[Rfam]
RNA sequence: ACGCCUGCUCCGGGGUGCACGUAAUGGCGUGCUGAGAUGGCGGACCUGACCGCCGGAACCGCGAACUUGAUCUGGUUAGUACCAGCGAAAGAAGAGCUGCAGCUGAAAUG
Numbered sequence: 001a002c003g004c005c006u007g008c009u010c011c012g013g014g015g016u017g018c019a020c021g022u023a024a025u026g027g028c029g030u031g032c033u034g035a036g037a038u039g040g041c042g043g044a045c046c047u048g049a050c051c052g053c054c055g056g057a058a059c060c061g062c063g064a065a066c067u068u069g070a071u072c073u074g075g076u077u078a079g080u081a082c083c084a085g086c087g088a089a090a091g092a093a094g095a096g097c098u099g100c101a102g103c104u105g106a107a108a109u110g
Stems, first nucleotide, its partner, number of pairs: 007097004011061003016055001017032005039054005066091003072085004
Shown here is a 110-nucleotide sequence from Comamonas kerstersii, a member of the family "TPP riboswitch aptamer (THI element)".
The base pairs follow the family's consensus structure, which is taken from published work.
The match comes from Rfam's covariance-model search (60 bits).